[Rfam]
RNA sequence: GCCUCUGAUGAUGAUUAUGACAGAACUUUCGUUCUUCUGAGAUGUUUCAUGCGGAAAAUAUCUGGAGACCUGAGCUGAAGAGGC
Numbered sequence: 001g002c003c004u005c006u007g008a009u010g011a012u013g014a015u016u017a018u019g020a021c022a023g024a025a026c027u028u029u030c031g032u033u034c035u036u037c038u039g040a041g042a043u044g045u046u047u048c049a050u051g052c053g054g055a056a057a058a059u060a061u062c063u064g065g066a067g068a069c070c071u072g073a074g075c076u077g078a079a080g081a082g083g084c
Stems, first nucleotide, its partner, number of pairs: 003082004
Shown here is an 84-nucleotide RNA from Rhodamnia argentea, a member of the family "Small nucleolar RNA Z159/U59". On this family, see Chen et al., Nucleic Acids Res 2003: "The high diversity of snoRNAs in plants: identification and comparative study of 120 snoRNA genes from Oryza sativa". The organism belongs to Rhodamnia, within Eukaryota. Its family is annotated with RNA processing and nucleolus in the Gene Ontology. The family is grouped with related families in Rfam's "SNORD59 clan". It scores 65 bits against the family's covariance model.